[Rfam]
RNA sequence: UUCCACAGUUACUGGUCUGGAACUGUUCAGAACAAUAGCAGUUGCAGUAUUCCAUCUGUGGAAAAUAAACUGUUAUAUUGUAUUGCGUUCCUUCCUCAGUUUAUCUGAAAAGGAUCUCUGAAUGUAACAUACAAAA
Dot-bracket structure: ..((((..........(((.(((((.............))))).)))..........)))).............(((((.........((.((.(...........).))..))......)))))...........
Numbered sequence: 001u002u003c004c005a006c007a008g009u010u011a012c013u014g015g016u017c018u019g020g021a022a023c024u025g026u027u028c029a030g031a032a033c034a035a036u037a038g039c040a041g042u043u044g045c046a047g048u049a050u051u052c053c054a055u056c057u058g059u060g061g062a063a064a065a066u067a068a069a070c071u072g073u074u075a076u077a078u079u080g081u082a083u084u085g086c087g088u089u090c091c092u093u094c095c096u097c098a099g100u101u102u103a104u105c106u107g108a109a110a111a112g113g114a115u116c117u118c119u120g121a122a123u124g125u126a127a128c129a130u131a132c133a134a135a136a
Stems, first nucleotide, its partner, number of pairs: 003061004017047003021043005075125005089114002092110002095107001
Shown here is a 136-nucleotide RNA sequence from Crocodylus porosus, a member of the family "Small nucleolar RNA SNORA41". Rfam describes the family as follows. ACA41 is a member of the H/ACA class of snoRNA that guide the sites of modification of uridines to pseudouridines. On this family, see Huttenhofer et al., EMBO J 2001: "RNomics: an experimental approach that identifies 201 candidates for novel, small, non-messenger RNAs in mouse". The family's RNA type in Rfam is H/ACA-box small nucleolar RNA. NCBI's taxonomy places the organism under Eukaryota, Bilateria, Teleostomi, Longirostres, Crocodylus.